RNA sequence: GGGGACGUUUUUGGAUUCGACGGGUAUAGGUUGAAUCUUAAUUGCACUUCGAAGGUUGCGUCUUCGUAAAAACGCUCAGUUUUUAAAUUAUAACUGCAAACAAUAAUUCAAACGCUUACGCAUACGCUGCCUAGUCGGUAAGCAUGCGUAAAUCCGGCCGGACUCGUCCACGGUGCGUUACCGGGUUUCAUAUUUAGUGGACUAACGUUACUAAUUUCCGUUUGUAAUUAGUAAAAGAGAUUCAUCAAGCUAGCUGAUUAUGCGUGCCUUGAUUAGCGGCGUUUUAAUUAGUGAAUUUUAAAUAGUUAAUCUAUGAGUGUAGAGAUUAGGAUGGCAAUAUGCCCGGACGCGGGUUCGAUCCCCGCCGUCUCCAUAA
Numbered sequence: 001g002g003g004g005a006c007g008u009u010u011u012u013g014g015a016u017u018c019g020a021c022g023g024g025u026a027u028a029g030g031u032u033g034a035a036u037c038u039u040a041a042u043u044g045c046a047c048u049u050c051g052a053a054g055g056u057u058g059c060g061u062c063u064u065c066g067u068a069a070a071a072a073c074g075c076u077c078a079g080u081u082u083u084u085a086a087a088u089u090a091u092a093a094c095u096g097c098a099a100a101c102a103a104u105a106a107u108u109c110a111a112a113c114g115c116u117u118a119c120g121c122a123u124a125c126g127c128u129g130c131c132u133a134g135u136c137g138g139u140a141a142g143c144a145u146g147c148g149u150a151a152a153u154c155c156g157g158c159c160g161g162a163c164u165c166g167u168c169c170a171c172g173g174u175g176c177g178u179u180a181c182c183g184g185g186u187u188u189c190a191u192a193u194u195u196a197g198u199g200g201a202c203u204a205a206c207g208u209u210a211c212u213a214a215u216u217u218c219c220g221u222u223u224g225u226a227a228u229u230a231g232u233a234a235a236a237g238a239g240a241u242u243c244a245u246c247a248a249g250c251u252a253g254c255u256g257a258u259u260a261u262g263c264g265u266g267c268c269u270u271g272a273u274u275a276g277c278g279g280c281g282u283u284u285u286a287a288u289u290a291g292u293g294a295a296u297u298u299u300a301a302a303u304a305g306u307u308a309a310u311c312u313a314u315g316a317g318u319g320u321a322g323a324g325a326u327u328a329g330g331a332u333g334g335c336a337a338u339a340u341g342c343c344c345g346g347a348c349g350c351g352g353g354u355u356c357g358a359u360c361c362c363c364g365c366c367g368u369c370u371c372c373a374u375a376a
Stems, first nucleotide, its partner, number of pairs: 001372007021345008035332009045319005050066005058075004122149002125146002128144003151187006157179001159177002162174003166202006208234009220251001222249002253292008262283001266280003271311004349365005